[Rfam]
RNA sequence: UGUCGAGGAAAUCAUCGGUAGUUAACUGCAGUCAAUUUUCUAAAACUUCGGUAGUUAACUGCCGAGGGGCAU
Numbered sequence: 001u002g003u004c005g006a007g008g009a010a011a012u013c014a015u016c017g018g019u020a021g022u023u024a025a026c027u028g029c030a031g032u033c034a035a036u037u038u039u040c041u042a043a044a045a046c047u048u049c050g051g052u053a054g055u056u057a058a059c060u061g062c063c064g065a066g067g068g069g070c071a072u
Stems, first nucleotide, its partner, number of pairs: 012068002015065015
Dot-bracket structure: ...........((.(((((((((((((((.....................))))))))))))))).))....
Annotation: Rfam assigns this 72-nucleotide sequence from Medicago truncatula to the family "MIR2629 microRNA precursor family". It scores 71 bits against the family's covariance model. Gene Ontology terms of the family: miRNA-mediated post-transcriptional gene silencing and RISC complex. Pairs were carried over by alignment from the consensus structure, which was predicted with RNAalifold. Taxonomically the source falls in Medicago (Eukaryota, Tracheophyta, Euphyllophyta, Trifolieae).